PreQ1 (pre queuosine) riboswitch aptamer: a 45-nucleotide RNA sequence from Pediococcus claussenii.
Rfam's curators write: This family is a bacterial riboswitch that binds to the metabolite preQ1, an intermediate in the biosynthesis of the modified nucleoside queuosine from GTP. One example of this riboswitch is located in the leader of the Bacillus subtilis ykvJKLM (queCDEF) operon which encodes four genes necessary for queuosine production.
On this family, see Klein et al., Nat Struct Mol Biol 2009: "Cocrystal structure of a class I preQ1 riboswitch reveals a pseudoknot recognizing an essential hypermodified nucleobase".

[Rfam]
Nucleotides: 045
Base pairs, nucleotide, nucleotide: 006027007026008025009024010023016037
Number, partner (000 for none) and nucleotide at each position: 001000a002000a003000u004000c005000c006027c007026g008025u009024g010023g011000u012000u013000c014000g015000c016037a017000a018000u019000u020000a021000u022000c023010c024009c025008a026007c027006g028000u029000a030000a031000a032000a033000a034000a035000a036000c037016u038000a039000a040000g041000g042000a043000g044000g045000a